[Rfam]
RNA sequence: UGGCUAUAGCUAGAUUAAAUCGAAGAAGCUUACUGGCCGGUUAUUGUGAGAUCCUUUUGGAUCUCUGUCGAUAAAUCUGCUUACCGAGUUUCUCACAAUU
Numbered sequence: 001u002g003g004c005u006a007u008a009g010c011u012a013g014a015u016u017a018a019a020u021c022g023a024a025g026a027a028g029c030u031u032a033c034u035g036g037c038c039g040g041u042u043a044u045u046g047u048g049a050g051a052u053c054c055u056u057u058u059g060g061a062u063c064u065c066u067g068u069c070g071a072u073a074a075a076u077c078u079g080c081u082u083a084c085c086g087a088g089u090u091u092c093u094c095a096c097a098a099u100u
Stems, first nucleotide, its partner, number of pairs: 024093007035081003039077004043072004
Overview
The family of this 100-nucleotide sequence from Lathyrus oleraceus is "Small nucleolar RNA snoR109". The match comes from Rfam's covariance-model search (88 bits). Gene Ontology terms of the family: nucleolus and RNA processing. The source organism's lineage runs through Eukaryota, rosids, Hologalegina, Fabeae and Lathyrus. It is annotated as an H/ACA-box small nucleolar RNA.